[Rfam]
The record is a 139-nucleotide RNA sequence from Turnix velox, which matches "Small nucleolar RNA SNORA49" in Rfam.

RNA sequence: UUUCCUCAGCCUUAGUCCAGGGGCUUUUGGCUUUUUUGUAGAGUGCCCUGGCAUUGCCUGAGGAUAAAUGGAAAUAUGCUCAUUCCCACCCCAGUAAGAUCCUCAGUAUCAUCUGGGGUCUACAGUUUGGGCAAACUUA
Numbered sequence: 001u002u003u004c005c006u007c008a009g010c011c012u013u014a015g016u017c018c019a020g021g022g023g024c025u026u027u028u029g030g031c032u033u034u035u036u037u038g039u040a041g042a043g044u045g046c047c048c049u050g051g052c053a054u055u056g057c058c059u060g061a062g063g064a065u066a067a068a069u070g071g072a073a074a075u076a077u078g079c080u081c082a083u084u085c086c087c088a089c090c091c092c093a094g095u096a097a098g099a100u101c102c103u104c105a106g107u108a109u110c111a112u113c114u115g116g117g118g119u120c121u122a123c124a125g126u127u128u129g130g131g132c133a134a135a136c137u138u139a
Stems, first nucleotide, its partner, number of pairs: 003064007011056001017051006023044005077133003081129002089118006096112001098110002
About the family: The snoRNA ACA49 has no identified RNA target. NB genomic sequence 1-nt different from published. Rfam 15.1 lists 722 matches to the family in 550 species. NCBI's taxonomy places the organism under Eukaryota, Vertebrata, Gnathostomata, Saurischia, Turnix.